[Rfam]
RNA: DUF3800-IX RNA
Organism: Anaerolineae bacterium
RNA sequence: UCCCGCCCGCGAAAAGUCGCCGAGUGUGGCGGCCUGCCCCCUUCUGCGCGAAGGAUCGGGCUAGCGGGGCGGGUUAUG
Numbered sequence: 001u002c003c004c005g006c007c008c009g010c011g012a013a014a015a016g017u018c019g020c021c022g023a024g025u026g027u028g029g030c031g032g033c034c035u036g037c038c039c040c041c042u043u044c045u046g047c048g049c050g051a052a053g054g055a056u057c058g059g060g061c062u063a064g065c066g067g068g069g070c071g072g073g074u075u076a077u078g
Stems, first nucleotide, its partner, number of pairs: 002073005007067004016033006036061004